[Rfam]
RNA sequence: UGCAUAAAUAGAGGCGCAGAUGAAAGGUGUAGCUUGUGUUGUUAAGAAUAAGAACAUUCGUGAUAUAGGUGAAGGGUUUAUCUGCCGAAAGGUUGUACUGGUUCUUCAAUACAGUCUUGGGAGUAUGGGGUAGUCCUAUGCUCUUGCCGUAGAUUAAUUUGUAUUUACGGAGAGCUAUUUAUGUG
Dot-bracket structure: .....((((((....(((((((((.......(((((((((((.................)))))))))))......)))))))))...(((((((((.((......)).)))))))))(((((((((((.....))))))))))).(((((((..........)))))))....)))))).....
Lysine riboswitch aptamer: a 185-nucleotide RNA from Clostridium oryzae.
About the family: Riboswitches are metabolite binding domains within certain messenger RNAs that serve as precision sensors for their corresponding targets.
Its family is annotated with lysine biosynthetic process in the Gene Ontology.